[Rfam]
Source information
The record is a 73-nucleotide RNA from uncultured Eubacterium sp., which matches "HDV ribozyme from F. prausnitzii" in Rfam. Its family is annotated with catalytic activity in the Gene Ontology. NCBI's taxonomy places the organism under Bacteria, Bacillati, Clostridia, Eubacteriaceae, Eubacterium. The literature on the family includes a 2009 paper in Science by Webb et al., "Widespread occurrence of self-cleaving ribozymes".
RNA sequence: GCUGCUCGGACAAUCACACACCUCUUCAUGGUAAGCAGCAGGCAACGAUCUUACAAUCGGCGAAGAUGUGAGA
Number, nucleotide and partner (000 for none) at each position: 001g039002c038003u037004g036005c035006u034007c000008g000009g000010a000011c000012a000013a000014u000015c000016a000017c000018a000019c000020a032021c031022c030023u000024c000025u000026u000027c000028a000029u000030g022031g021032u020033a000034a006035g005036c004037a003038g002039c001040a000041g000042g000043c000044a000045a000046c059047g058048a057049u056050c000051u000052u000053a000054c000055a000056a049057u048058c047059g046060g000061c000062g000063a000064a000065g000066a000067u000068g000069u000070g000071a000072g000073a000
It is one of the family's seed sequences.